RNA: Small nucleolar RNA SNORD25
RNA sequence: GACAGCUAUGAUGAGUUCUACAGAUCUGUAGUGAUUGCGGAUAUGAUCGCAAUUGUUAUGAACAUUUAAGGGACUGAGUUGUU
Numbered sequence: 001g002a003c004a005g006c007u008a009u010g011a012u013g014a015g016u017u018c019u020a021c022a023g024a025u026c027u028g029u030a031g032u033g034a035u036u037g038c039g040g041a042u043a044u045g046a047u048c049g050c051a052a053u054u055g056u057u058a059u060g061a062a063c064a065u066u067u068a069a070g071g072g073a074c075u076g077a078g079u080u081g082u083u
Stems, first nucleotide, its partner, number of pairs: 002082005